Small nucleolar RNA SNORA29: a 134-nucleotide RNA sequence from Tupaia belangeri.
The source organism's lineage runs through Eukaryota, Opisthokonta, Gnathostomata, Eutheria and Tupaia belangeri.
Rfam's curators write: ACA29 is a member of the H/ACA class of snoRNA that guide the sites of modification of uridines to pseudouridines.
Rfam links the family to the GO terms nucleolus and RNA processing.
It is annotated as an H/ACA-box small nucleolar RNA.
Its Rfam clan is "SNORA20 clan".
[Rfam]
RNA sequence: UUUCCCAUUUGACUACCACAUUUUCUCCCGAUAAUGGAUUUUAGUGGCUAUGCUUAUGGGAUAGGUUACAAUUGCCAUGAUCUAAAAAAGGAGGGUUUUCUGGUGUCCUGUUUCUAUUGGGUUAUUGGAAAAAG
Numbered sequence: 001u002u003u004c005c006c007a008u009u010u011g012a013c014u015a016c017c018a019c020a021u022u023u024u025c026u027c028c029c030g031a032u033a034a035u036g037g038a039u040u041u042u043a044g045u046g047g048c049u050a051u052g053c054u055u056a057u058g059g060g061a062u063a064g065g066u067u068a069c070a071a072u073u074g075c076c077a078u079g080a081u082c083u084a085a086a087a088a089a090g091g092a093g094g095g096u097u098u099u100c101u102g103g104u105g106u107c108c109u110g111u112u113u114c115u116a117u118u119g120g121g122u123u124a125u126u127g128g129a130a131a132a133a134g
Stems, first nucleotide, its partner, number of pairs: 004060004016047004075120003092115004